[Rfam]
RNA sequence: UCACACAGCACUGUACACAGAGUCUGUCCCCAAACAUUAUAUGUGGUGUUGUUUGGCUGGAAUUAAAGUAGUUU
Numbered sequence: 001u002c003a004c005a006c007a008g009c010a011c012u013g014u015a016c017a018c019a020g021a022g023u024c025u026g027u028c029c030c031c032a033a034a035c036a037u038u039a040u041a042u043g044u045g046g047u048g049u050u051g052u053u054u055g056g057c058u059g060g061a062a063u064u065a066a067a068g069u070a071g072u073u074u
Base pairs, nucleotide, nucleotide: 005052006051007050008049009048018045019044022035023034025032026031
U1A polyadenylation inhibition element (PIE): a 74-nucleotide sequence from Erinaceus europaeus. It is one of the family's seed sequences. From the family's description: This family represents the U1A polyadenylation inhibition element (PIE). PIE is a regulatory RNA which is responsible for the regulation of the length of the polyA tail of the U1A pre-mRNA. The PIE is located in the U1A mRNA 3' UTR. PIE adopts a U-shaped structure, with binding sites for a single U1A protein at each bend and when complexed with the two proteins it blocks activity of poly(A) polymerase (PAP), and inhibits its activity. On this family, see Clerte and Hall, Biochemistry 2004: "Global and Local Dynamics of the U1A Polyadenylation Inhibition Element (PIE) RNA and PIE RNA-U1A Complexes".